Background:
The record is a 75-nucleotide RNA from Sphingomonas hengshuiensis, which matches "Makes More Granules Regulator RNA (mmgR)" in Rfam. By type it is a small RNA. Lineage of the source: Bacteria > Pseudomonadota > Alphaproteobacteria > Sphingomonadaceae > Sphingomonas.
[Rfam]
RNA sequence: AGAGCAGGCCUUUCAGGCAUCCUCUCCUAAACCUUUCCCGGCGGGCCCCAGUGGCCCGCCUUUUUUUUGCCCCUC
Numbered sequence: 001a002g003a004g005c006a007g008g009c010c011u012u013u014c015a016g017g018c019a020u021c022c023u024c025u026c027c028u029a030a031a032c033c034u035u036u037c038c039c040g041g042c043g044g045g046c047c048c049c050a051g052u053g054g055c056c057c058g059c060c061u062u063u064u065u066u067u068u069g070c071c072c073c074u075c
Base pairs, nucleotide, nucleotide: 008018009017010016011015040060041059042058043057044056045055046054047053
Rfam describes the family as follows. SuhB later renamed mmgR (makes more granules regulator) was a putative non-coding RNA found multiple times in the Agrobacterium tumefaciens genome and related alpha-proteobacteria. The match comes from Rfam's covariance-model search (43 bits). The base pairs follow the family's consensus structure.